[Rfam]
RNA sequence: AGGUAACCGCCUGCUGCACCUCUAUCACUGCAGGCACUCGGCCAUGCUGUGGGCAUGCAACAAAGAAGGACGAUGCCUUAGACGUUCAUCGUCAAGGGUGUGGUGUGAGGUCGGGUUAAAUGCCCA
Numbered sequence: 001a002g003g004u005a006a007c008c009g010c011c012u013g014c015u016g017c018a019c020c021u022c023u024a025u026c027a028c029u030g031c032a033g034g035c036a037c038u039c040g041g042c043c044a045u046g047c048u049g050u051g052g053g054c055a056u057g058c059a060a061c062a063a064a065g066a067a068g069g070a071c072g073a074u075g076c077c078u079u080a081g082a083c084g085u086u087c088a089u090c091g092u093c094a095a096g097g098g099u100g101u102g103g104u105g106u107g108a109g110g111u112c113g114g115g116u117u118a119a120a121u122g123c124c125c126a
Stems, first nucleotide, its partner, number of pairs: 001021004009035006037109004041104008051078006081093004113125004
Shown here is a 126-nucleotide sequence from Aneurinibacillus danicus, a member of the family "epsC RNA". It is annotated as a cis-regulatory element. A search with the family's covariance model found it, with a score of 86 bits.